A member of the RNA family "mir-iab-4 microRNA precursor family" from Allacma fusca, 71 nucleotides long. A search with the family's covariance model found it, with a score of 78 bits. Rfam links the family to the GO terms miRNA-mediated post-transcriptional gene silencing and RISC complex.
Nucleotides: 071
Base pairs, nucleotide, nucleotide: 003069004068005067006066009064010063011062012061013060014059015058016057017056018055019054020053022051023050024049025048027047028046030044031043
Number, partner (000 for none) and nucleotide at each position: 001000c002000g003069c004068c005067u006066g007000u008000u009064a010063c011062g012061u013060a014059u015058a016057c017056u018055g019054a020053a021000g022051g023050u024049a025048u026000a027047c028046c029000g030044g031043a032000g033000a034000u035000u036000u037000a038000u039000g040000c041000c042000c043031u044030c045000a046028g047027g048025a049024u050023a051022c052000a053020u054019u055018c056017a057016g058015u059014a060013u061012a062011c063010g064009u065000u066006c067005a068004g069003g070000a071000a